[Rfam]
RNA sequence: GUUUUGAAUCAAUCGCUAUAUUUGAAAAAUAAUAUAGAGGAAACUCCACGCUUGCACAUUCUGCGAUGAAUGUAGUGUUUGUGCUAAGGGAAAAAAUAACCUUAGGCAUUGCUUUGCAAUGACGACCGAGAUUAGCCUAAGUGAUUUAUCAUAUGGCAAAGCUCUUAAAGUGCCACAGAGACGAUUAGCUAGAAAUAGUGAAAUGGAACGGGUAAACUCCACAAGCAAGAAACUCAAAUUUUGGUAGAGGAGCUAAGAGACAGGGAAUUGAACCUGUUUCUUGGAUUGUGCUUAUGCACGAUAGAUAGAUGAUUGAUGCGCGCAAGCGAUACAGAACGUGGGUUACGACAA
Numbered sequence: 001g002u003u004u005u006g007a008a009u010c011a012a013u014c015g016c017u018a019u020a021u022u023u024g025a026a027a028a029a030u031a032a033u034a035u036a037g038a039g040g041a042a043a044c045u046c047c048a049c050g051c052u053u054g055c056a057c058a059u060u061c062u063g064c065g066a067u068g069a070a071u072g073u074a075g076u077g078u079u080u081g082u083g084c085u086a087a088g089g090g091a092a093a094a095a096a097u098a099a100c101c102u103u104a105g106g107c108a109u110u111g112c113u114u115u116g117c118a119a120u121g122a123c124g125a126c127c128g129a130g131a132u133u134a135g136c137c138u139a140a141g142u143g144a145u146u147u148a149u150c151a152u153a154u155g156g157c158a159a160a161g162c163u164c165u166u167a168a169a170g171u172g173c174c175a176c177a178g179a180g181a182c183g184a185u186u187a188g189c190u191a192g193a194a195a196u197a198g199u200g201a202a203a204u205g206g207a208a209c210g211g212g213u214a215a216a217c218u219c220c221a222c223a224a225g226c227a228a229g230a231a232a233c234u235c236a237a238a239u240u241u242u243g244g245u246a247g248a249g250g251a252g253c254u255a256a257g258a259g260a261c262a263g264g265g266a267a268u269u270g271a272a273c274c275u276g277u278u279u280c281u282u283g284g285a286u287u288g289u290g291c292u293u294a295u296g297c298a299c300g301a302u303a304g305a306u307a308g309a310u311g312a313u314u315g316a317u318g319c320g321c322g323c324a325a326g327c328g329a330u331a332c333a334g335a336a337c338g339u340g341g342g343u344u345a346c347g348a349c350a351a
Stems, first nucleotide, its partner, number of pairs: 004351003008317007016037006042344003046341005051229005056073006079224005084105006106123001107121006124219002128164003135157003141152003170217002172213003185202002188199004233249003253284007285302006319328003